RNA sequence: GUUUCUUUGGGGAGUGUUUGCUAUAUAAUUGGAUUUAUACAAUGUUUAGAGGUGCAGUAGGCAUGACUUUGAGUAGAU
Numbered sequence: 001g002u003u004u005c006u007u008u009g010g011g012g013a014g015u016g017u018u019u020g021c022u023a024u025a026u027a028a029u030u031g032g033a034u035u036u037a038u039a040c041a042a043u044g045u046u047u048a049g050a051g052g053u054g055c056a057g058u059a060g061g062c063a064u065g066a067c068u069u070u071g072a073g074u075a076g077a078u
Stems, first nucleotide, its partner, number of pairs: 001078004006073007014064009024054003030048005
Notes
Shown here is a 78-nucleotide sequence from Equus caballus, a member of the family "mir-1902 microRNA precursor family". Gene Ontology terms of the family: miRNA-mediated post-transcriptional gene silencing and RISC complex. Pairs were carried over by alignment from the consensus structure, which was predicted with RNAalifold.